[Rfam]
RNA sequence: CCGUGCUAGGUGGGGAGGUAGCGGUGCCCUGUACUUGCAAUCCGCUCUAGCAAGACUGAAUCCCUUCUUGAGGCUAGUAUCCUGUAGGGCCUGCCUUAAGUAAGUGGUGUUGACGCUUGGGUCCUGCGCAAUGGAAAUCCAUGAACCAUGUCAGAUCCGGAAGGAAGCAGCAUUAAGUGGACUCUUCCAUGUGCCGCAGGGCAGCCUGAGCCGAGCUAACUGCUUAAGUAACGCUUAUGGGAGCUAGUCGAGGGGAGGUGCACGG
Numbered sequence: 001c002c003g004u005g006c007u008a009g010g011u012g013g014g015g016a017g018g019u020a021g022c023g024g025u026g027c028c029c030u031g032u033a034c035u036u037g038c039a040a041u042c043c044g045c046u047c048u049a050g051c052a053a054g055a056c057u058g059a060a061u062c063c064c065u066u067c068u069u070g071a072g073g074c075u076a077g078u079a080u081c082c083u084g085u086a087g088g089g090c091c092u093g094c095c096u097u098a099a100g101u102a103a104g105u106g107g108u109g110u111u112g113a114c115g116c117u118u119g120g121g122u123c124c125u126g127c128g129c130a131a132u133g134g135a136a137a138u139c140c141a142u143g144a145a146c147c148a149u150g151u152c153a154g155a156u157c158c159g160g161a162a163g164g165a166a167g168c169a170g171c172a173u174u175a176a177g178u179g180g181a182c183u184c185u186u187c188c189a190u191g192u193g194c195c196g197c198a199g200g201g202c203a204g205c206c207u208g209a210g211c212c213g214a215g216c217u218a219a220c221u222g223c224u225u226a227a228g229u230a231a232c233g234c235u236u237a238u239g240g241g242a243g244c245u246a247g248u249c250g251a252g253g254g255g256a257g258g259u260g261c262a263c264g265g
Base pairs, nucleotide, nucleotide: 001265002264003263004262005261006260009057010056011055012030013029014028015027017025019023034054035053036052037051038050063258064257065256066255067254068253069252072249073248074247075246076245080242081241082240083239084238085237086236087235088234092230093229096227097226098225099224100223101222104220105219106217107216108215115211116210117209118208119207120206121205122204123200124199125198126197127196128195129191130190132189133188134187135186136185138181139180140179141178142177148173149172150171151170156165157164158163